A member of the RNA family "Plant small nucleolar RNA R71" from Capsicum baccatum, 106 nucleotides long. Pairs were carried over by alignment from the consensus structure, which was predicted with PFOLD. NCBI's taxonomy places the organism under Eukaryota, Magnoliopsida, eudicotyledons, Solanales, Capsicum.
RNA sequence: ACCUCAUGAUUUGGGCAUUGCAUUAAUUUAUCAUUGAAACUUUACCAAACUUCAUACAAUGGUUCACUACAAAGUUGGCAAAAAUUUGUGAUCUCAUCCCUUAGCU
Number, nucleotide and partner (000 for none) at each position: 001a106002c000003c104004u103005c000006a101007u000008g000009a000010u000011u000012u000013g000014g000015g000016c000017a000018u000019u000020g000021c000022a000023u000024u000025a000026a000027u000028u000029u000030a000031u000032c000033a000034u000035u000036g000037a000038a000039a000040c000041u000042u000043u000044a000045c000046c000047a000048a000049a000050c000051u000052u000053c000054a000055u000056a000057c074058a000059a000060u071061g000062g000063u000064u000065c000066a000067c000068u000069a000070c000071a060072a000073a000074g057075u000076u000077g000078g000079c000080a000081a000082a000083a000084a000085u000086u000087u000088g000089u000090g000091a000092u000093c000094u000095c000096a000097u000098c000099c000100c000101u006102u000103a004104g003105c000106u001
A reference for the family is Brown et al. (2003), "Plant snoRNAs: functional evolution and new modes of gene expression", Trends Plant Sci.